This 77-nucleotide RNA from Crocodylus porosus belongs to the Rfam family "Mammalian CPEB3 ribozyme".
[Rfam]
RNA sequence: ACAAGUUCAUAGGCUACAUCAGAAGGGCUCAGCUGACAUGCAGCCUGUCAGAUUCCAAUGAAUCUGCAAAUUCUGCU
Numbered sequence: 001a002c003a004a005g006u007u008c009a010u011a012g013g014c015u016a017c018a019u020c021a022g023a024a025g026g027g028c029u030c031a032g033c034u035g036a037c038a039u040g041c042a043g044c045c046u047g048u049c050a051g052a053u054u055c056c057a058a059u060g061a062a063u064c065u066g067c068a069a070a071u072u073c074u075g076c077u
Stems, first nucleotide, its partner, number of pairs: 012045004018077001020075005025041001027039001049066007
The source organism's lineage runs through Eukaryota, Craniata, Dipnotetrapodomorpha, Amniota and Crocodylus. Rfam describes the family as follows. The mammalian CPEB3 ribozyme is a self cleaving RNA located in the second intron of the CPEB3 gene which belongs to a family of genes regulating messenger RNA polyadenylation. Its family is annotated with RNA nuclease activity in the Gene Ontology. The match comes from Rfam's covariance-model search (40 bits). The base pairs follow the family's consensus structure, which is taken from published work.